[Rfam]
RNA sequence: CCUGGUUCGCGCGACUGGCGAGAAAGAGAUGGGCAACCAUCGGGAAACGCGAACUUCAAUGAGCCGCUCGCCUGGGCAACCCAU
Numbered sequence: 001c002c003u004g005g006u007u008c009g010c011g012c013g014a015c016u017g018g019c020g021a022g023a024a025a026g027a028g029a030u031g032g033g034c035a036a037c038c039a040u041c042g043g044g045a046a047a048c049g050c051g052a053a054c055u056u057c058a059a060u061g062a063g064c065c066g067c068u069c070g071c072c073u074g075g076g077c078a079a080c081c082c083a084u
Base pairs, nucleotide, nucleotide: 004055005054006053007052008051009050010049011048015044016043017072018071019070020069021068029040030039031038032037063077064076065075